[Rfam]
RNA sequence: CCCCAUCCUUACGGGAUGGGGCUGAAAUAUACCGGGCUUUCAGCCCU
Numbered sequence: 001c002c003c004c005a006u007c008c009u010u011a012c013g014g015g016a017u018g019g020g021g022c023u024g025a026a027a028u029a030u031a032c033c034g035g036g037c038u039u040u041c042a043g044c045c046c047u
Stems, first nucleotide, its partner, number of pairs: 001021008034046005

Source information: Rfam assigns this 47-nucleotide RNA sequence from Tannerella forsythia to the family "Acido-Lenti-1 RNA". Lineage of the source: Bacteria > Pseudomonadati > Bacteroidia > Tannerella > Tannerella forsythia. It is annotated as a small RNA. A search with the family's covariance model found it, with a score of 39 bits.